Notes: A member of the RNA family "t44 RNA" from Pseudomonas sp. M30-35, 96 nucleotides long. Lineage of the source: Bacteria > Pseudomonadati > Pseudomonadales > Pseudomonadaceae > Pseudomonas. On this family, see Tjaden et al., Nucleic Acids Res 2002: "Transcriptome analysis of Escherichia coli using high-density oligonucleotide probe arrays". The match comes from Rfam's covariance-model search (78 bits).
[Rfam]
RNA sequence: UGUCCAAAAGCAUAAACCCACACACGUAUCGACACGAUUUCCUGGGUGCCGUUUGUUCUGCAAAUGGUUGGAGAUUGGGAUGCGUGGAGGCCUAAC
Numbered sequence: 001u002g003u004c005c006a007a008a009a010g011c012a013u014a015a016a017c018c019c020a021c022a023c024a025c026g027u028a029u030c031g032a033c034a035c036g037a038u039u040u041c042c043u044g045g046g047u048g049c050c051g052u053u054u055g056u057u058c059u060g061c062a063a064a065u066g067g068u069u070g071g072a073g074a075u076u077g078g079g080a081u082g083c084g085u086g087g088a089g090g091c092c093u094a095a096c
Base pairs, nucleotide, nucleotide: 023086024085025084026083027082028081029080030079035077036076037075038074039073040072041071042070048068049067050066051065052064